[Rfam]
RNA sequence: AGCUCAGCGGGAGUCUUAAUUUAUUUCUUAACCUUUAUUAUGUAAGGGUCUUGGUGUUUUUAAGUGGUUAUUUCUUCUCCAUGCU
Numbered sequence: 001a002g003c004u005c006a007g008c009g010g011g012a013g014u015c016u017u018a019a020u021u022u023a024u025u026u027c028u029u030a031a032c033c034u035u036u037a038u039u040a041u042g043u044a045a046g047g048g049u050c051u052u053g054g055u056g057u058u059u060u061u062a063a064g065u066g067g068u069u070a071u072u073u074c075u076u077c078u079c080c081a082u083g084c085u
Stems, first nucleotide, its partner, number of pairs: 009078004016063004025054002031049008
Stem loopII regulatory element in POLB: an 85-nucleotide sequence from Suricata suricatta. Gene Ontology term of the family: regulation of RNA stability. The source organism's lineage runs through Eukaryota, Bilateria, Tetrapoda, Mammalia and Suricata.